RNA: mir-1781 microRNA precursor family
Organism: Ardeotis kori
RNA sequence: CAUGGAGCUUGUUUAACAGCUGAGUGAUUUAAAGCAAUCAAAUUCCUUUAGCUUGAAAUCAUGCAACUGUUGAACAGGCUCGUUU
Numbered sequence: 001c002a003u004g005g006a007g008c009u010u011g012u013u014u015a016a017c018a019g020c021u022g023a024g025u026g027a028u029u030u031a032a033a034g035c036a037a038u039c040a041a042a043u044u045c046c047u048u049u050a051g052c053u054u055g056a057a058a059u060c061a062u063g064c065a066a067c068u069g070u071u072g073a074a075c076a077g078g079c080u081c082g083u084u085u
Stems, first nucleotide, its partner, number of pairs: 002084001005081015021065002024062007032054004